[Rfam]
RNA sequence: AUUUCUAAAUCGCUGAAGUAAAUACGCGGGGGAACCAAUUUUGGGGUGUAUGAUAUACAUCCUUGGGGUGAAUCCUUUAUAUAGGUAGGGCUACUUCGAGGCCCGAAUCCGACAGCUAACCUCGUAAGCGUUAUAGGAGAAGAAAA
Numbered sequence: 001a002u003u004u005c006u007a008a009a010u011c012g013c014u015g016a017a018g019u020a021a022a023u024a025c026g027c028g029g030g031g032g033a034a035c036c037a038a039u040u041u042u043g044g045g046g047u048g049u050a051u052g053a054u055a056u057a058c059a060u061c062c063u064u065g066g067g068g069u070g071a072a073u074c075c076u077u078u079a080u081a082u083a084g085g086u087a088g089g090g091c092u093a094c095u096u097c098g099a100g101g102c103c104c105g106a107a108u109c110c111g112a113c114a115g116c117u118a119a120c121c122u123c124g125u126a127a128g129c130g131u132u133a134u135a136g137g138a139g140a141a142g143a144a145a146a
Base pairs, nucleotide, nucleotide: 011130012129013128014127018025019024026125027124028123029122030121031120036065037064066110067109068108074085075084076083088104089103090102091101
The record is a 146-nucleotide RNA sequence from Rummeliibacillus sp. TYF005, which matches "c-di-AMP riboswitch aptamer (ydaO/yuaA leader)" in Rfam. It scores 101 bits against the family's covariance model. Lineage of the source: Bacteria > Bacillota > Caryophanales > Caryophanaceae > Rummeliibacillus. From the family's description: This family represents a conserved RNA structure found upstream of the ydaO and yuaA genes in Bacillus subtilis and related genes in other bacteria.